[Rfam]
The record is a 52-nucleotide sequence from Aegilops tauschii, which matches "Plastid-psbN 5UTR RNA" in Rfam. On this family, see Richter et al., Plant Commun 2023: "Retrograde signaling in plants: A critical review focusing on the GUN pathway and beyond". Plastid psbN is a non-coding RNA (ncRNA) recognised in plastids. It was reported as a conserved 11 stem-loop in the prime untranslated region (5UTR) of psbN genes. Rfam classes the family as a cis-regulatory element. The organism belongs to Aegilops tauschii, within Eukaryota.
RNA sequence: UGCUAAAAAGAGUAGUCCCCAACCCGGAGCUACUUUCCCAUAUUCUGAAUUC
Numbered sequence: 001u002g003c004u005a006a007a008a009a010g011a012g013u014a015g016u017c018c019c020c021a022a023c024c025c026g027g028a029g030c031u032a033c034u035u036u037c038c039c040a041u042a043u044u045c046u047g048a049a050u051u052c
Base pairs, nucleotide, nucleotide: 009036010035011034012033013032014031015030016029017027018026